[Rfam]
RNA sequence: GUGCUGAUGGCAGCACCAUUCCAAGAGCUGUGACCACGAGCCUGUUGACAGCUCUGGGAAUGGCACUGCCAUCGGCAC
Number, nucleotide and partner (000 for none) at each position: 001g000002u077003g076004c075005u000006g000007a072008u071009g070010g000011c068012a067013g066014c000015a000016c063017c062018a061019u060020u059021c058022c000023a000024a055025g054026a053027g052028c051029u050030g049031u048032g000033a000034c000035c000036a000037c000038g000039a000040g000041c000042c000043u000044g000045u000046u000047g000048a031049c030050a029051g028052c027053u026054c025055u024056g000057g000058g021059a020060a019061u018062g017063g016064c000065a000066c013067u012068g011069c000070c009071a008072u007073c000074g000075g004076c003077a002078c000
RNA: mir-458 microRNA precursor family